[Rfam]
RNA sequence: UAAAUGGACCCGAAGGCAGUAUUCGGUAUUUCCAUUAUUUUAAUUAAUUGGGAAUAAUAAUAGAAUUGACAUUUA
Number, nucleotide and partner (000 for none) at each position: 001u075002a074003a073004a072005u071006g070007g000008a000009c000010c026011c025012g024013a023014a022015g000016g000017c000018a000019g000020u000021a000022u014023u013024c012025g011026g010027u056028a055029u054030u053031u052032c051033c050034a000035u000036u000037a000038u000039u000040u000041u000042a000043a000044u000045u000046a000047a000048u000049u000050g033051g032052g031053a030054a029055u028056a027057a000058u000059a000060a000061u000062a000063g000064a000065a000066u000067u000068g000069a000070c006071a005072u004073u003074u002075a001
RNA: Mitochondrion-encoded tmRNA